[Rfam]
RNA sequence: UUGAAGGCGGGAGGAGAGACCACGGUUGUGGCGCCGAAGGAGCAAGCCGUAUCAGGCGAAUCUCUCAGGCAAAAGGAGGCCCGCUGGACG
Numbered sequence: 001u002u003g004a005a006g007g008c009g010g011g012a013g014g015a016g017a018g019a020c021c022a023c024g025g026u027u028g029u030g031g032c033g034c035c036g037a038a039g040g041a042g043c044a045a046g047c048c049g050u051a052u053c054a055g056g057c058g059a060a061u062c063u064c065u066c067a068g069g070c071a072a073a074a075g076g077a078g079g080c081c082c083g084c085u086g087g088a089c090g
Stems, first nucleotide, its partner, number of pairs: 006085006020031004033070003036066002040064003046057002

A member of the RNA family "Glycine riboswitch aptamer" from Thermoactinomyces mirandus, 90 nucleotides long.
Its family is annotated with glycine biosynthetic process in the Gene Ontology.
This family represents the bacterial glycine riboswitch.